[Rfam]
RNA sequence: UAGAUUUAUUCUUACACAGUAUGAGUAAUAUCUCCAUUUCAAUAAUAAAAUCUUACACAAUAUGAAGCAGUAUUCACUUUUUAU
Number, nucleotide and partner (000 for none) at each position: 001u000002a000003g000004a000005u000006u028007u027008a026009u025010u024011c023012u000013u000014a000015c000016a000017c000018a000019g000020u000021a000022u000023g011024a010025g009026u008027a007028a006029u000030a000031u000032c000033u000034c000035c000036a000037u000038u000039u000040c000041a000042a000043u000044a000045a000046u000047a000048a000049a000050a000051u000052c000053u000054u000055a000056c000057a000058c000059a000060a000061u000062a000063u076064g075065a074066a073067g000068c000069a000070g000071u000072a000073u066074u065075c064076a063077c000078u000079u000080u000081u000082u000083a000084u000
Listeria sRNA rli34: an 84-nucleotide sequence from Listeria monocytogenes. The family's consensus secondary structure was predicted with RNAalifold. It is annotated as a small RNA.